Shown here is a 239-nucleotide RNA from Romboutsia weinsteinii, a member of the family "T-box leader". Taxonomically the source falls in Romboutsia (Bacteria, Bacillati, Clostridia, Peptostreptococcales).
[Rfam]
RNA sequence: AAAAAGACGAUGAUAAGAUCAGUAGAUAUAAAUACUAGUAACAGCGAGUUGGGGAUGGUGUAAGCCCAGUACCAAGUUUAUAUUGAAUAACGCCUUGGAGUCUCUAACCGAAAGCAAUAUUGUGAGUAGGCUUAGACGGGAGAUCCCGUUAUAGAUCAUAAGCAAUAGCUUAACUAAGAGGUCAAUAUAUAUUGGCAAUUAGGGUGGUACCGCGAAGAUAAUAGUCUUUCGUCCCUUUU
Numbered sequence: 001a002a003a004a005a006g007a008c009g010a011u012g013a014u015a016a017g018a019u020c021a022g023u024a025g026a027u028a029u030a031a032a033u034a035c036u037a038g039u040a041a042c043a044g045c046g047a048g049u050u051g052g053g054g055a056u057g058g059u060g061u062a063a064g065c066c067c068a069g070u071a072c073c074a075a076g077u078u079u080a081u082a083u084u085g086a087a088u089a090a091c092g093c094c095u096u097g098g099a100g101u102c103u104c105u106a107a108c109c110g111a112a113a114g115c116a117a118u119a120u121u122g123u124g125a126g127u128a129g130g131c132u133u134a135g136a137c138g139g140g141a142g143a144u145c146c147c148g149u150u151a152u153a154g155a156u157c158a159u160a161a162g163c164a165a166u167a168g169c170u171u172a173a174c175u176a177a178g179a180g181g182u183c184a185a186u187a188u189a190u191a192u193u194g195g196c197a198a199u200u201a202g203g204g205u206g207g208u209a210c211c212g213c214g215a216a217g218a219u220a221a222u223a224g225u226c227u228u229u230c231g232u233c234c235c236u237u238u239u
Base pairs, nucleotide, nucleotide: 007101008100015096016095017094025084026083027082028081029080030079038072039071048070049069050068051067052066053065104135105134106133107132109130137148138147139146181196182195183194184193185192186191201236202235203234204233212232213231214230215229216228

Rfam describes the family as follows. Uncharged tRNA acts as the effector for transcription antitermination of genes in the T-box leader family. T-boxes are found upstream of many aminoacyl-tRNA synthetase genes and some amino acid biosynthetic genes usually in Gram-positive bacteria. The anticodon of a specific tRNA base pairs to a specifier sequence within the T-box motif, and the NCCA acceptor tail of the tRNA base pairs to a conserved bulge in the T-box antiterminator hairpin.
Rfam 15.1 lists 19,395 matches to the family in 1,923 species.